Rfam assigns this 194-nucleotide RNA sequence from Hermetia illucens to the family "U2 spliceosomal RNA". Pairs were carried over by alignment from the consensus structure, which is taken from published work.
RNA sequence: AUCGCUUCUCGGCCUUAUGGCUAAGAUCAAAGUGUAGUAUCUGUUCUUAUCAGCUUAACACCUGAUAGAUCCCCCAUAGGGGGACGACAAAUGUUAAACUGAUUUUUGGGAAAUGGCGGAGUGCUAGGGGCUUGCUCCACCUCUGCCGCGGGUUGGCCCGGUAUUGCAGUACCGCCGGGAUCGGCCCAGAUUCA
Numbered sequence: 001a002u003c004g005c006u007u008c009u010c011g012g013c014c015u016u017a018u019g020g021c022u023a024a025g026a027u028c029a030a031a032g033u034g035u036a037g038u039a040u041c042u043g044u045u046c047u048u049a050u051c052a053g054c055u056u057a058a059c060a061c062c063u064g065a066u067a068g069a070u071c072c073c074c075c076a077u078a079g080g081g082g083g084a085c086g087a088c089a090a091a092u093g094u095u096a097a098a099c100u101g102a103u104u105u106u107u108g109g110g111a112a113a114u115g116g117c118g119g120a121g122u123g124c125u126a127g128g129g130g131c132u133u134g135c136u137c138c139a140c141c142u143c144u145g146c147c148g149c150g151g152g153u154u155g156g157c158c159c160g161g162u163a164u165u166g167c168a169g170u171a172c173c174g175c176c177g178g179g180a181u182c183g184g185c186c187c188a189g190a191u192u193c194a
Base pairs, nucleotide, nucleotide: 007026008025009024011022012021013020014019048067049066050065051064052063053062070084071083072082073081074080075079115147116146117145118144119143120142121141127138128137129136130135150187151186152185153184154183155182157179158178159177160176161175162174
U2 is a small nuclear RNA (snRNA) component of the spliceosome (involved in pre-mRNA splicing). Lineage of the source: Eukaryota > Metazoa > Eumetazoa > Eumetabola > Hermetia. For this family Rfam cites "Crystal structure of a model branchpoint-U2 snRNA duplex containing bulged adenosines" (Berglund et al., RNA, 2001). Its Rfam clan is "U2 clan".